[Rfam]
RNA sequence: ACAUGAUAUAGAGGCCGCAGUUGUCAAUAGUAAUGUUAUUUUACAUGAAAGGGGCAAUUGCCGAAACACAGGUUAUGUGUUGGGAUUAUACCAAAUAGGUAUGGUACUGUCUUUAGAAAAUUGCCCGAUUUUCUAAAGGGGUGCUUGUUAUGUU
Numbered sequence: 001a002c003a004u005g006a007u008a009u010a011g012a013g014g015c016c017g018c019a020g021u022u023g024u025c026a027a028u029a030g031u032a033a034u035g036u037u038a039u040u041u042u043a044c045a046u047g048a049a050a051g052g053g054g055c056a057a058u059u060g061c062c063g064a065a066a067c068a069c070a071g072g073u074u075a076u077g078u079g080u081u082g083g084g085a086u087u088a089u090a091c092c093a094a095a096u097a098g099g100u101a102u103g104g105u106a107c108u109g110u111c112u113u114u115a116g117a118a119a120a121u122u123g124c125c126c127g128a129u130u131u132u133c134u135a136a137a138g139g140g141g142u143g144c145u146u147g148u149u150a151u152g153u154u
Stems, first nucleotide, its partner, number of pairs: 006149001010145002017061009033046004065081006082108002085105008110139011

A member of the RNA family "Lysine riboswitch aptamer" from Clostridium tetanomorphum, 154 nucleotides long.